[Rfam]
The record is a 67-nucleotide RNA from Calypte anna, which matches "mir-139 microRNA precursor family" in Rfam. The family has 29 seed sequences and 598 matches in Rfam 15.1. Gene Ontology terms of the family: miRNA-mediated post-transcriptional gene silencing and RISC complex. The source organism's lineage runs through Eukaryota, Opisthokonta, Metazoa, Sauria and Calypte.
RNA sequence: CUGUAUUCUACAGUGCUCGUGUCUCCAGUGUGUGUAGGGACUGGAGCUGCGGCCCUGUUGGGAUAAC
Numbered sequence: 001c002u003g004u005a006u007u008c009u010a011c012a013g014u015g016c017u018c019g020u021g022u023c024u025c026c027a028g029u030g031u032g033u034g035u036a037g038g039g040a041c042u043g044g045a046g047c048u049g050c051g052g053c054c055c056u057g058u059u060g061g062g063a064u065a066a067c
Stems, first nucleotide, its partner, number of pairs: 006063004010058004015053002018051004023046007